[Rfam]
RNA sequence: UCGAAGCUCCAUCUACAAAUGGAUAAGAUUUUGGUCUUAGUGUAUACGAGUUAAGUUAUUGAAAGGAAGGGAGCAAUACCAGCCCUCUUGAUAGAACAAGAAAUUGGUUAUUGCUCCCUU
Numbered sequence: 001u002c003g004a005a006g007c008u009c010c011a012u013c014u015a016c017a018a019a020u021g022g023a024u025a026a027g028a029u030u031u032u033g034g035u036c037u038u039a040g041u042g043u044a045u046a047c048g049a050g051u052u053a054a055g056u057u058a059u060u061g062a063a064a065g066g067a068a069g070g071g072a073g074c075a076a077u078a079c080c081a082g083c084c085c086u087c088u089u090g091a092u093a094g095a096a097c098a099a100g101a102a103a104u105u106g107g108u109u110a111u112u113g114c115u116c117c118c119u120u
Stems, first nucleotide, its partner, number of pairs: 008023005067120012082105001086101004
The family of this 120-nucleotide RNA from Aldrovanda vesiculosa is "Plastid-psbA-1 3UTR RNA".
Clan: Plastid-psbA 3UTR RNA clan.